A member of the RNA family "tRNA" from Actinomadura chibensis, 72 nucleotides long. Taxonomically the source falls in Actinomadura (Bacteria, Bacillati, Actinomycetes, Thermomonosporaceae). From the family's description: Transfer RNA (tRNA) molecules are approximately 80 nucleotides in length. It is annotated as a transfer RNA. The base pairs follow the family's consensus structure, which is taken from published work.
RNA sequence: GCCGCACAGGUCGAAGUGGUGAGACUCCUGGCCUCCAACCAGGCGGACCGGGUUCGACUCCCGGGUGCGGCU
Dot-bracket structure: (((((((..(((..........))).(((((.......)))))....(((((.......)))))))))))).